Notes:
A member of the RNA family "Proteo-phage-1 RNA" from Meridianimarinicoccus roseus, 88 nucleotides long. Pairs were carried over by alignment from the consensus structure, which is taken from published work. Taxonomically the source falls in Meridianimarinicoccus (Bacteria, Pseudomonadota, Alphaproteobacteria, Paracoccaceae). By type it is a small RNA.

RNA sequence: CCCUUGCCGCAGGGGGUUUGCCACGAUGGCAGCGAUUUGCGGCUGCGGAUAAGCCAGGAGUGCCGCCUGCAAAAAAAAACCGGCAGCG
Numbered sequence: 001c002c003c004u005u006g007c008c009g010c011a012g013g014g015g016g017u018u019u020g021c022c023a024c025g026a027u028g029g030c031a032g033c034g035a036u037u038u039g040c041g042g043c044u045g046c047g048g049a050u051a052a053g054c055c056a057g058g059a060g061u062g063c064c065g066c067c068u069g070c071a072a073a074a075a076a077a078a079a080c081c082g083g084c085a086g087c088g
Stems, first nucleotide, its partner, number of pairs: 001015004007042005016033003045066004053084003057080001